Notes:
A member of the RNA family "c-di-GMP-I riboswitch aptamer" from Paenibacillus rigui, 91 nucleotides long. A search with the family's covariance model found it, with a score of 70 bits.
RNA sequence: CAUUACUCUUGGCAAACCUGCCGAAAGACAGGGACGCAAAGCUACAGGGUCUAACGUCCGUACUCCGGACUAUGACAGCCUGGCCGCCGAA
Number, nucleotide and partner (000 for none) at each position: 001c000002a000003u000004u000005a000006c000007u000008c000009u000010u000011g000012g037013c036014a000015a000016a000017c032018c031019u030020g029021c000022c027023g000024a000025a000026a000027g022028a000029c020030a019031g018032g017033g000034a000035c000036g013037c012038a000039a000040a000041g084042c083043u082044a000045c000046a081047g080048g079049g076050u075051c074052u000053a000054a000055c000056g070057u069058c068059c067060g000061u000062a000063c000064u000065c000066c000067g059068g058069a057070c056071u000072a000073u000074g051075a050076c049077a000078g000079c048080c047081u046082g043083g042084c041085c000086g000087c000088c000089g000090a000091a000